RNA sequence: AAGCAAUACUCUGUGGCAGAUGAACAAAUCUAUCUGACACAAUUUGAGCUUACUAUAGCAAGAAAGCUUAACCUAUUCUGGUGUUCUCUUUCCCAUGAGACAACCAGCUAUAUAGGCUCAAAAAGU
Numbered sequence: 001a002a003g004c005a006a007u008a009c010u011c012u013g014u015g016g017c018a019g020a021u022g023a024a025c026a027a028a029u030c031u032a033u034c035u036g037a038c039a040c041a042a043u044u045u046g047a048g049c050u051u052a053c054u055a056u057a058g059c060a061a062g063a064a065a066g067c068u069u070a071a072c073c074u075a076u077u078c079u080g081g082u083g084u085u086c087u088c089u090u091u092c093c094c095a096u097g098a099g100a101c102a103a104c105c106a107g108c109u110a111u112a113u114a115g116g117c118u119c120a121a122a123a124a125g126u
Stems, first nucleotide, its partner, number of pairs: 009048003012041004017036006065118006074112003079107001081105001087100004
Small nucleolar RNA SNORA28: a 126-nucleotide RNA from Nannospalax galili.
The family's consensus secondary structure was predicted with RNAfold.
ACA28 is a member of the H/ACA class of snoRNA that guide the sites of modification of uridines to pseudouridines.
Rfam classes the family as an H/ACA-box small nucleolar RNA.
NCBI's taxonomy places the organism under Eukaryota, Metazoa, Amniota, Glires, Nannospalax.
The match comes from Rfam's covariance-model search (119 bits).
The literature on the family includes a 2001 paper in EMBO J by Huttenhofer et al., "RNomics: an experimental approach that identifies 201 candidates for novel, small, non-messenger RNAs in mouse".